[Rfam]
RNA sequence: CACGUUCAUCCCUAUUGGGACGGAAGUAGGCAUAGUGCCGAAGGAACGCAUU
Numbered sequence: 001c002a003c004g005u006u007c008a009u010c011c012c013u014a015u016u017g018g019g020a021c022g023g024a025a026g027u028a029g030g031c032a033u034a035g036u037g038c039c040g041a042a043g044g045a046a047c048g049c050a051u052u
Stems, first nucleotide, its partner, number of pairs: 003048005009020004023049001029039003

The record is a 52-nucleotide RNA sequence, which matches "Glutamine riboswitch aptamer (glnA leader)" in Rfam.